The record is an 80-nucleotide RNA sequence from Medicago truncatula, which matches "MIR5269 microRNA precursor family" in Rfam.
Pairs were carried over by alignment from the consensus structure, which was predicted with RNAalifold.
Its family is annotated with miRNA-mediated post-transcriptional gene silencing and RISC complex in the Gene Ontology.
RNA sequence: UUGGGUGAAAUCAAUGUGGUUAUCAUACAUUGGAAAUGGAUCCUACACAAAGUGGUGAGAUCCACAUAAGUUUCACCCAA
Numbered sequence: 001u002u003g004g005g006u007g008a009a010a011u012c013a014a015u016g017u018g019g020u021u022a023u024c025a026u027a028c029a030u031u032g033g034a035a036a037u038g039g040a041u042c043c044u045a046c047a048c049a050a051a052g053u054g055g056u057g058a059g060a061u062c063c064a065c066a067u068a069a070g071u072u073u074c075a076c077c078c079a080a
Stems, first nucleotide, its partner, number of pairs: 001080011014067005023058003026054003030050003
The source organism's lineage runs through Eukaryota, Viridiplantae, Gunneridae, Hologalegina and Medicago.